The record is a 391-nucleotide RNA from Roseiconus nitratireducens, which matches "Bacterial RNase P class A" in Rfam.
RNA sequence: CCAGAGGGCGGGGCGAUCGCUCGGCGGCCACGGCCGCCGGGAGGAAAGUCCGGGCUCCACAGGACAGGAUGGUCGAUAACGUCGACCGGCCGCGAGGCUAGGGCUAGUGCAACAGAGAGCAGACCGCCGAACGGUUCGCGCCUCGGCGCGGACGCGUGGUAAGGGUGAAACGGUGCGGUAAGAGCGCACCAGCGGUCAAGGUGACUUGAUCGGCUCGGUAAACCCCAUCCGGAGCUAGACCAAACAGGGUGCAGAAGCGGUCCGCUUCGUGACGACACCCGGGUAGGUCGCGAUUGAGGCGACGAGCAAUCGUCGUGCACAGAUAAAUGAUCGCCGUCGCGCGGGCCCGGCUCGCGCGUCACAGAACCCGGCUUACAAGCCCUCUGGUGAA
Numbered sequence: 001c002c003a004g005a006g007g008g009c010g011g012g013g014c015g016a017u018c019g020c021u022c023g024g025c026g027g028c029c030a031c032g033g034c035c036g037c038c039g040g041g042a043g044g045a046a047a048g049u050c051c052g053g054g055c056u057c058c059a060c061a062g063g064a065c066a067g068g069a070u071g072g073u074c075g076a077u078a079a080c081g082u083c084g085a086c087c088g089g090c091c092g093c094g095a096g097g098c099u100a101g102g103g104c105u106a107g108u109g110c111a112a113c114a115g116a117g118a119g120c121a122g123a124c125c126g127c128c129g130a131a132c133g134g135u136u137c138g139c140g141c142c143u144c145g146g147c148g149c150g151g152a153c154g155c156g157u158g159g160u161a162a163g164g165g166u167g168a169a170a171c172g173g174u175g176c177g178g179u180a181a182g183a184g185c186g187c188a189c190c191a192g193c194g195g196u197c198a199a200g201g202u203g204a205c206u207u208g209a210u211c212g213g214c215u216c217g218g219u220a221a222a223c224c225c226c227a228u229c230c231g232g233a234g235c236u237a238g239a240c241c242a243a244a245c246a247g248g249g250u251g252c253a254g255a256a257g258c259g260g261u262c263c264g265c266u267u268c269g270u271g272a273c274g275a276c277a278c279c280c281g282g283g284u285a286g287g288u289c290g291c292g293a294u295u296g297a298g299g300c301g302a303c304g305a306g307c308a309a310u311c312g313u314c315g316u317g318c319a320c321a322g323a324u325a326a327a328u329g330a331u332c333g334c335c336g337u338c339g340c341g342c343g344g345g346c347c348c349g350g351c352u353c354g355c356g357c358g359u360c361a362c363a364g365a366a367c368c369c370g371g372c373u374u375a376c377a378a379g380c381c382c383u384c385u386g387g388u389g390a391a
Base pairs, nucleotide, nucleotide: 001387002386003385004384005383006382007381008380009379011376012335013334014333015332016331017330018329020041021040022039023038024037025036026035027034028033046374047373048372050371051370052369053368054367055234056233057232058231062263063262064261065260067230068229069228070227071226072086073085074084075083076082087101088099089098090097091096102225103224107223108222109219110218124164125163126160127159128158129157132154133153172190173189174188175187176186177185192214193212194211195210196209197208198207199206200205238289239288240287241286247280248279249278250277251276254268255267256266257265258264298318299316300315301314302313303312304311305310
NCBI's taxonomy places the organism under Bacteria, Pseudomonadati, Planctomycetota, Pirellulaceae, Roseiconus. The family's RNA type in Rfam is ribozyme. Clan: RNaseP clan. Its family is annotated with dimeric ribonuclease P complex, ribonuclease P activity and tRNA processing in the Gene Ontology.